[Rfam]
RNA sequence: ACGGUAGAGGUUCUAGCUACCCUCUCAAAAAAACUAAGGAAAA
Numbered sequence: 001a002c003g004g005u006a007g008a009g010g011u012u013c014u015a016g017c018u019a020c021c022c023u024c025u026c027a028a029a030a031a032a033a034c035u036a037a038g039g040a041a042a043a
Stems, first nucleotide, its partner, number of pairs: 006025005016035001

Shown here is a 43-nucleotide RNA from Bacillus sp. NRRL B-14911, a member of the family "PreQ1 (pre queuosine) riboswitch aptamer".
Rfam describes the family as follows. This family is a bacterial riboswitch that binds to the metabolite preQ1, an intermediate in the biosynthesis of the modified nucleoside queuosine from GTP. One example of this riboswitch is located in the leader of the Bacillus subtilis ykvJKLM (queCDEF) operon which encodes four genes necessary for queuosine production. PreQ1 binding to the riboswitch aptamer is thought to induce premature transcription termination within the leader to down-regulate expression of these genes.
It is one of the family's seed sequences.
The literature on the family includes a 2011 paper in J Biol Chem by Jenkins et al., "Comparison of a preQ1 riboswitch aptamer in metabolite-bound and free states with implications for gene regulation".
The pairing is the family consensus, mapped onto this sequence.